Mu-gpT-DE RNA: a 52-nucleotide RNA sequence. By type it is a small RNA. The base pairs follow the family's consensus structure, which is taken from published work.
[Rfam]
RNA sequence: CCCUGACAGUCGCAUGGUGUGGCUGACUAACCCUAGACAGGAGAUCAACAUG
Dot-bracket structure: .((((.(((((.........)))))............))))...........